Rfam assigns this 130-nucleotide RNA from Callorhinus ursinus to the family "U4 spliceosomal RNA". It scores 72 bits against the family's covariance model. U4 small nuclear RNA (U4 snRNA) is a component of the major U2-dependent spliceosome. Pairs were carried over by alignment from the consensus structure, which is taken from published work.

[Rfam]
RNA sequence: AGCUUUGAGCAGUGGCAGUAUCGUAGCCAAUGAGGUUUAUCCGAGGCAUGAUUAUUGCUAAUUAAAUUUAUUUAGAAAUCUCUUCUGUGAUAUAUCUUAUUAUAUUGUAUAUCUUACAUUUUGAGUAAAA
Numbered sequence: 001a002g003c004u005u006u007g008a009g010c011a012g013u014g015g016c017a018g019u020a021u022c023g024u025a026g027c028c029a030a031u032g033a034g035g036u037u038u039a040u041c042c043g044a045g046g047c048a049u050g051a052u053u054a055u056u057g058c059u060a061a062u063u064a065a066a067u068u069u070a071u072u073u074a075g076a077a078a079u080c081u082c083u084u085c086u087g088u089g090a091u092a093u094a095u096c097u098u099a100u101u102a103u104a105u106u107g108u109a110u111a112u113c114u115u116a117c118a119u120u121u122u123g124a125g126u127a128a129a130a
Base pairs, nucleotide, nucleotide: 020052021051022050023049024048026047027046028045034042035041086109087108088107089106090105091104092103093102094101121130122129